[Rfam]
Background: Rfam assigns this 238-nucleotide sequence from Lodderomyces parapsilosis to the family "Group I catalytic intron". The match comes from Rfam's covariance-model search (72 bits). From the family's description: Group I catalytic introns are large self-splicing ribozymes. They catalyse their own excision from mRNA, tRNA and rRNA precursors in a wide range of organisms. The core secondary structure consists of 9 paired regions (P1-P9). These fold to essentially two domains - the P4-P6 domain (formed from the stacking of P5, P4, P6 and P6a helices) and the P3-P9 domain (formed from the P8, P3, P7 and P9 helices).
RNA sequence: CGCUAGGGAUAUUAAGUUGUCCCCGUAUAUCGUGAGAUAUACUUAAUUAAUAGGGUUAAUUACAAAGAUAUCUUAUUUUCAUAAGACAAUUUGUAGCGAAGUAUAUAUUAGUAUUUAUAUAUAUAUAAACGUUCAACGACUAAAAGAUGAGUUUACUAACAAUAAUUCUUUCAUGAAAGCCCUACACCUAAUUUAAUUUUAGGUGAUGACAUAGUCUAAUCUAUAUAGUGAUAUAUAG
Numbered sequence: 001c002g003c004u005a006g007g008g009a010u011a012u013u014a015a016g017u018u019g020u021c022c023c024c025g026u027a028u029a030u031c032g033u034g035a036g037a038u039a040u041a042c043u044u045a046a047u048u049a050a051u052a053g054g055g056u057u058a059a060u061u062a063c064a065a066a067g068a069u070a071u072c073u074u075a076u077u078u079u080c081a082u083a084a085g086a087c088a089a090u091u092u093g094u095a096g097c098g099a100a101g102u103a104u105a106u107a108u109u110a111g112u113a114u115u116u117a118u119a120u121a122u123a124u125a126u127a128a129a130c131g132u133u134c135a136a137c138g139a140c141u142a143a144a145a146g147a148u149g150a151g152u153u154u155a156c157u158a159a160c161a162a163u164a165a166u167u168c169u170u171u172c173a174u175g176a177a178a179g180c181c182c183u184a185c186a187c188c189u190a191a192u193u194u195a196a197u198u199u200u201a202g203g204u205g206a207u208g209a210c211a212u213a214g215u216c217u218a219a220u221c222u223a224u225a226u227a228g229u230g231a232u233a234u235a236u237a238g
Stems, first nucleotide, its partner, number of pairs: 001016001028041003051184004056179002061095006071086005096132002104121005136217001138216005187203005223236005